[Rfam]
RNA sequence: GAUAAAGGAACGCGUACUAAGAACGCCACGUCCUGUGGCAACGUCCGCAUGACCCACAUCCUGUGGG
Numbered sequence: 001g002a003u004a005a006a007g008g009a010a011c012g013c014g015u016a017c018u019a020a021g022a023a024c025g026c027c028a029c030g031u032c033c034u035g036u037g038g039c040a041a042c043g044u045c046c047g048c049a050u051g052a053c054c055c056a057c058a059u060c061c062u063g064u065g066g067g
Stems, first nucleotide, its partner, number of pairs: 012048003016044002025039005053067005

Rfam assigns this 67-nucleotide RNA from Bacillus sp. NRRL B-14911 to the family "Bacillaceae-1 RNA". The sequence is in the family's curated seed alignment.